[Rfam]
RNA sequence: GGUAAUAAAUGUCGCUUAUAAUAGGCGUUUUGGACUCGGGGGCGGUACCCGACGCCUCCACCAUUAAAAUUAUGGGGGCGAACUAGCUUCGACAGGCGUUAAAAAAGGUAGAUUUUACCCGGUAUGAUACCACCGAUUAUGGGUCAAAAUAGUAAAUGCAAACGAUAAUUUUGCUAGCAAUGAAAGAUUCGCUCCUAUGGCUCUAGCAGCUUAA
Numbered sequence: 001g002g003u004a005a006u007a008a009a010u011g012u013c014g015c016u017u018a019u020a021a022u023a024g025g026c027g028u029u030u031u032g033g034a035c036u037c038g039g040g041g042g043c044g045g046u047a048c049c050c051g052a053c054g055c056c057u058c059c060a061c062c063a064u065u066a067a068a069a070u071u072a073u074g075g076g077g078g079c080g081a082a083c084u085a086g087c088u089u090c091g092a093c094a095g096g097c098g099u100u101a102a103a104a105a106a107g108g109u110a111g112a113u114u115u116u117a118c119c120c121g122g123u124a125u126g127a128u129a130c131c132a133c134c135g136a137u138u139a140u141g142g143g144u145c146a147a148a149a150u151a152g153u154a155a156a157u158g159c160a161a162a163c164g165a166u167a168a169u170u171u172u173g174c175u176a177g178c179a180a181u182g183a184a185a186g187a188u189u190c191g192c193u194c195c196u197a198u199g200g201c202u203c204u205a206g207c208a209g210c211u212u213a214a
Stems, first nucleotide, its partner, number of pairs: 001119005014109004026098003030095003036052005053080007120135004
Rfam assigns this 214-nucleotide sequence from endosymbiont of Acanthamoeba sp. UWC8 to the family "permuted transfer-messenger RNA". Lineage of the source: Bacteria > Pseudomonadati > Pseudomonadota > Alphaproteobacteria > Holosporaceae. Rfam classes the family as a non-coding RNA gene. Bacterial tmRNA, also known as 10Sa RNA or SsrA, is named for its dual tRNA and mRNA-like properties.